[Rfam]
RNA: RtT RNA
RNA sequence: AUAUUCCCCAUUGGGGGAUGGAUGAGAACCUUCGACCAAGGUUCGAGUCGAGCAACGCGAGACAACGUCGCGUCCGCGCCGGCCGUUUGAAUGGCGCCGCUUUUCUGCUACCAUCA
Numbered sequence: 001a002u003a004u005u006c007c008c009c010a011u012u013g014g015g016g017g018a019u020g021g022a023u024g025a026g027a028a029c030c031u032u033c034g035a036c037c038a039a040g041g042u043u044c045g046a047g048u049c050g051a052g053c054a055a056c057g058c059g060a061g062a063c064a065a066c067g068u069c070g071c072g073u074c075c076g077c078g079c080c081g082g083c084c085g086u087u088u089g090a091a092u093g094g095c096g097c098c099g100c101u102u103u104u105c106u107g108c109u110a111c112c113a114u115c116a
Stems, first nucleotide, its partner, number of pairs: 017115005023110001033096002036094002042091004049059002066081002069078003